[Rfam]
RNA sequence: GUAUAGCAGAAUACUGUGUUCUUUUUAUCGGUAGUUUACACAGCCAGACACCAUACAAAAGUAGUUUCCCUUUGAAAUGAAGGGUGGUACCUUAAGUUUUGUCAUCUCAUUAUUAAAAAUGGAUACAAAU
Number, nucleotide and partner (000 for none) at each position: 001g056002u055003a054004u053005a000006g051007c000008a000009g000010a000011a000012u000013a000014c043015u042016g041017u040018g039019u038020u000021c000022u000023u000024u000025u000026u000027a000028u000029c000030g000031g000032u000033a000034g000035u000036u000037u000038a019039c018040a017041c016042a015043g014044c000045c000046a000047g000048a000049c000050a000051c006052c000053a004054u003055a002056c001057a000058a000059a000060a000061g000062u000063a000064g000065u000066u000067u123068c122069c121070c000071u117072u116073u115074g114075a113076a000077a000078u000079g000080a000081a000082g107083g106084g105085u104086g103087g102088u101089a100090c000091c000092u000093u000094a000095a000096g000097u000098u000099u000100u089101g088102u087103c086104a085105u084106c083107u082108c000109a000110u000111u000112a000113u075114u074115a073116a072117a071118a000119a000120u000121g069122g068123a067124u000125a000126c000127a000128a000129a000130u000
Description: This 130-nucleotide RNA sequence from Galemys pyrenaicus belongs to the Rfam family "Small nucleolar RNA SNORA15". Pairs were carried over by alignment from the consensus structure, which was predicted with RNAfold. ACA15 is a member of the H/ACA class of snoRNA that guide the sites of modification of uridines to pseudouridines. A search with the family's covariance model found it, with a score of 95 bits.